[Rfam]
RNA sequence: GUUGACAAAGGCAAACCCGCCGUGAGGCGGGGACGCAAAGCUUGAGGUCUCCACGGAGGGAGAUAGCUCGGCCGCCGACU
Numbered sequence: 001g002u003u004g005a006c007a008a009a010g011g012c013a014a015a016c017c018c019g020c021c022g023u024g025a026g027g028c029g030g031g032g033a034c035g036c037a038a039a040g041c042u043u044g045a046g047g048u049c050u051c052c053a054c055g056g057a058g059g060g061a062g063a064u065a066g067c068u069c070g071g072c073c074g075c076c077g078a079c080u
Stems, first nucleotide, its partner, number of pairs: 001080001003077002011036002016031006034066001040072003044069003047064003
Record summary: Shown here is an 80-nucleotide sequence from Solirubrobacter pauli, a member of the family "c-di-GMP-I-GGC riboswitch aptamer". Taxonomically the source falls in Solirubrobacter (Bacteria, Bacillati, Actinomycetota, Thermoleophilia). Its family is annotated with cyclic-di-GMP binding in the Gene Ontology. Clan: c-di-GMP_I riboswitch clan.